[Rfam]
RNA sequence: CGAACCGCCCACGGCUUGGGAGAGCUGGAAAGCGGUUUGAAAGAUCGGCACGCGGCUUGGGAGAGCAGCUUGUGGAUCGUUUAAGGGGAGAAUUUGGGCGAUGGAGAAUGCGCUUCUCAUCAACUUGUCGCGGCAAUCCGCGCUCG
Number, nucleotide and partner (000 for none) at each position: 001c039002g038003a037004a036005c035006c034007g033008c032009c000010c000011a000012c027013g026014g025015c024016u023017u022018g000019g000020g000021a000022g017023a016024g015025c014026u013027g012028g000029a000030a000031a000032g008033c007034g006035g005036u004037u003038u002039g001040a000041a000042a000043g078044a077045u076046c075047g000048g073049c000050a000051c000052g000053c000054g000055g066056c065057u064058u063059g000060g000061g000062a000063g058064a057065g056066c055067a000068g000069c000070u000071u000072g000073u048074g000075g046076a045077u044078c043079g000080u000081u000082u000083a000084a000085g000086g000087g000088g000089a000090g000091a000092a000093u000094u000095u000096g000097g000098g000099c000100g121101a120102u119103g000104g118105a117106g116107a115108a114109u000110g000111c000112g000113c000114u108115u107116c106117u105118c104119a102120u101121c100122a000123a000124c000125u000126u000127g000128u000129c000130g000131c000132g000133g000134c000135a000136a000137u000138c000139c000140g000141c000142g000143c000144u000145c000146g000
RNA: flg-Rhizobiales RNA